[Rfam]
RNA sequence: GAAGCAUGGUCAAAACAAGUUCAUCGUGAGAAGUCAGCAGAAGCCAUAGUACCACAUCACGACCAGAUAUGGGAAGGGC
Numbered sequence: 001g002a003a004g005c006a007u008g009g010u011c012a013a014a015a016c017a018a019g020u021u022c023a024u025c026g027u028g029a030g031a032a033g034u035c036a037g038c039a040g041a042a043g044c045c046a047u048a049g050u051a052c053c054a055c056a057u058c059a060c061g062a063c064c065a066g067a068u069a070u071g072g073g074a075a076g077g078g079c
Stems, first nucleotide, its partner, number of pairs: 001022002004020002007017002010014001034041002043079003052072003056068002
The record is a 79-nucleotide RNA sequence from Petrimonas mucosa, which matches "Group II catalytic intron D1-D4-1" in Rfam. It scores 49 bits against the family's covariance model. Rfam 15.1 lists 2,508 matches to the family in 1,144 species. The organism belongs to Petrimonas, within Bacteria.